The family of this 77-nucleotide RNA from Neotoma lepida is "mir-3473 microRNA precursor family". Its family is annotated with cellular response to mechanical stimulus, miRNA-mediated post-transcriptional gene silencing and RISC complex in the Gene Ontology.
RNA sequence: ACUGUUGAGCCAUCUCUCCAGCCCCCUGAAAUUAACUUUUAAGAAAGGGAAUAGGGCUGGAGAGAUGGCUCAGCAGU
Numbered sequence: 001a002c003u004g005u006u007g008a009g010c011c012a013u014c015u016c017u018c019c020a021g022c023c024c025c026c027u028g029a030a031a032u033u034a035a036c037u038u039u040u041a042a043g044a045a046a047g048g049g050a051a052u053a054g055g056g057c058u059g060g061a062g063a064g065a066u067g068g069c070u071c072a073g074c075a076g077u
Stems, first nucleotide, its partner, number of pairs: 002076023